The family of this 114-nucleotide RNA sequence is "Potassium channel RNA editing signal". Pairs were carried over by alignment from the consensus structure, which is taken from published work. A reference for the family is Bhalla et al. (2004), "Control of human potassium channel inactivation by editing of a small mRNA hairpin", Nat Struct Mol Biol. The sequence is in the family's curated seed alignment. It is annotated as a cis-regulatory element.
RNA sequence: GUAGGCUAUGGAGACAUGGUCCCUACAACAAUAGGUGGCAAAAUAGUAGGCUCUCUGUGUGCAAUUGCAGGCGUAUUAACCAUUGCCUUACCUGUCCCUGUUAUAGUAUCCAAU
Numbered sequence: 001g002u003a004g005g006c007u008a009u010g011g012a013g014a015c016a017u018g019g020u021c022c023c024u025a026c027a028a029c030a031a032u033a034g035g036u037g038g039c040a041a042a043a044u045a046g047u048a049g050g051c052u053c054u055c056u057g058u059g060u061g062c063a064a065u066u067g068c069a070g071g072c073g074u075a076u077u078a079a080c081c082a083u084u085g086c087c088u089u090a091c092c093u094g095u096c097c098c099u100g101u102u103a104u105a106g107u108a109u110c111c112a113a114u
Stems, first nucleotide, its partner, number of pairs: 001114002004111002007108003011104001013102004018097002021094001037077002040074001050062002